RNA sequence: AGAGGCCCUCUGUGGCCGGGGUGGAACACUUGCCUUGUUGCCACGGCAACGAAGCAAGCAUUCCACCAGGCCACUCACGCUGCCCGC
Numbered sequence: 001a002g003a004g005g006c007c008c009u010c011u012g013u014g015g016c017c018g019g020g021g022u023g024g025a026a027c028a029c030u031u032g033c034c035u036u037g038u039u040g041c042c043a044c045g046g047c048a049a050c051g052a053a054g055c056a057a058g059c060a061u062u063c064c065a066c067c068a069g070g071c072c073a074c075u076c077a078c079g080c081u082g083c084c085c086g087c
Stems, first nucleotide, its partner, number of pairs: 004084003012074006020067007029058005037050005
Dot-bracket structure: ...(((.....((((((..(((((((..(((((...(((((....)))))...)))))..))))))).)))))).......)))...